About this RNA:
Shown here is a 102-nucleotide sequence from Priestia filamentosa, a member of the family "Guanidine-I riboswitch aptamer". The pairing is the family consensus, mapped onto this sequence. About the family: This family represents a conserved RNA structure found upstream of the ykkC and yxkD genes in Bacillus subtilis and related genes in other bacteria. The function of this family is unclear although it has been suggested that it may function to switch on efflux pumps and detoxification systems in response to harmful environmental molecules. The source organism's lineage runs through Bacteria, Bacillota, Caryophanales, Bacillaceae and Priestia. It scores 89 bits against the family's covariance model.
[Rfam]
RNA sequence: AAACAUGUUUUCUAGGGUUCCGUAACGAAUACGUUAGCCUGGUCCGAGAGAAAACUCAUAGUUGAUUAAACUAUGCCACGGAAGGAUAAAAGCCUGGGAGAA
Dot-bracket structure: ......((((((..((...((((((((....)))))..).)).))....)))))).(((((((.....))))))).(.[...(((.......))).)..]..